[Rfam]
RNA: Bacterial RNase P class A
RNA sequence: GGAGCCGGCCAGACAGUCGCGUCAUCCCUUCGGGGGUGCCGAGGAAAGUCCGGGCUCCAUAGGGCAAGGUGCCAGGUAACGCCUGGGCGGCGAAAGCCGACGGAAAGUGCAACAGAAAGAUACCGCCUACGUCUUCUUCGGAAGGCCGGCAAGGGUGAAAUGGUGCGGUAAGAGCGCACCGCGAGUCUGGCAACAGACCGGCACGGCAAACCCCACCUGGAGCAAGACCAAAUAGGGAUCCUUUGGCGCGGCCCGCGUUGGAUCCGGGUAGGUUGCUUGAGCGUUGCGGUGACGUAACGCCUAGAGGAAUGACUGUCCACGACAGAACCCGGCUUAUCGGCCGGCUCCGCCU
Numbered sequence: 001g002g003a004g005c006c007g008g009c010c011a012g013a014c015a016g017u018c019g020c021g022u023c024a025u026c027c028c029u030u031c032g033g034g035g036g037u038g039c040c041g042a043g044g045a046a047a048g049u050c051c052g053g054g055c056u057c058c059a060u061a062g063g064g065c066a067a068g069g070u071g072c073c074a075g076g077u078a079a080c081g082c083c084u085g086g087g088c089g090g091c092g093a094a095a096g097c098c099g100a101c102g103g104a105a106a107g108u109g110c111a112a113c114a115g116a117a118a119g120a121u122a123c124c125g126c127c128u129a130c131g132u133c134u135u136c137u138u139c140g141g142a143a144g145g146c147c148g149g150c151a152a153g154g155g156u157g158a159a160a161u162g163g164u165g166c167g168g169u170a171a172g173a174g175c176g177c178a179c180c181g182c183g184a185g186u187c188u189g190g191c192a193a194c195a196g197a198c199c200g201g202c203a204c205g206g207c208a209a210a211c212c213c214c215a216c217c218u219g220g221a222g223c224a225a226g227a228c229c230a231a232a233u234a235g236g237g238a239u240c241c242u243u244u245g246g247c248g249c250g251g252c253c254c255g256c257g258u259u260g261g262a263u264c265c266g267g268g269u270a271g272g273u274u275g276c277u278u279g280a281g282c283g284u285u286g287c288g289g290u291g292a293c294g295u296a297a298c299g300c301c302u303a304g305a306g307g308a309a310u311g312a313c314u315g316u317c318c319a320c321g322a323c324a325g326a327a328c329c330c331g332g333c334u335u336a337u338c339g340g341c342c343g344g345c346u347c348c349g350c351c352u
Stems, first nucleotide, its partner, number of pairs: 001348010011337001012317007020041002023038006046335003050332005055222004062254004067218005072086005087101001088099004102213002107211002109207002123154002125150003131146006162180006181202001182200002185198005226274004236265006245259005281300008